[Rfam]
RNA sequence: GCUCCCAAUGAUGCUCUUCUAUACCAUGCUAAUUCUGAUUCCAAAGAUUAAGCCUUUAUCGUGAUGUUCUUGAGGGAGUU
Numbered sequence: 001g002c003u004c005c006c007a008a009u010g011a012u013g014c015u016c017u018u019c020u021a022u023a024c025c026a027u028g029c030u031a032a033u034u035c036u037g038a039u040u041c042c043a044a045a046g047a048u049u050a051a052g053c054c055u056u057u058a059u060c061g062u063g064a065u066g067u068u069c070u071u072g073a074g075g076g077a078g079u080u
Stems, first nucleotide, its partner, number of pairs: 001079005